[Rfam]
The record is a 52-nucleotide RNA sequence from Neogale vison, which matches "mir-1302 microRNA precursor family" in Rfam. The organism belongs to Neogale, within Eukaryota.

RNA sequence: UCUUUAGCAUAAGUAUAUCUCAUACAGUAUUUAAGAUAUACUUAUGCUAAAA
Numbered sequence: 001u002c003u004u005u006a007g008c009a010u011a012a013g014u015a016u017a018u019c020u021c022a023u024a025c026a027g028u029a030u031u032u033a034a035g036a037u038a039u040a041c042u043u044a045u046g047c048u049a050a051a052a
Stems, first nucleotide, its partner, number of pairs: 006048007014040003018036003022031001
About this RNA
A reference for the family is Morin et al. (2008), "Application of massively parallel sequencing to microRNA profiling and discovery in human embryonic stem cells", Genome Res.